[Rfam]
RNA sequence: UUCUUAUCCAGAGAGAUGGAGGGAAUUGGCCCUGUGAAGUCUCAGCAGCGGGCUCUUAUGAGUACUGUGCUAAAUCCAACAAGCAAAGCUUGGUAGAUAAGUG
Numbered sequence: 001u002u003c004u005u006a007u008c009c010a011g012a013g014a015g016a017u018g019g020a021g022g023g024a025a026u027u028g029g030c031c032c033u034g035u036g037a038a039g040u041c042u043c044a045g046c047a048g049c050g051g052g053c054u055c056u057u058a059u060g061a062g063u064a065c066u067g068u069g070c071u072a073a074a075u076c077c078a079a080c081a082a083g084c085a086a087a088g089c090u091u092g093g094u095a096g097a098u099a100a101g102u103g
Stems, first nucleotide, its partner, number of pairs: 001103001003101006013043005021032003026079004044071004049067002052063004075095001080092005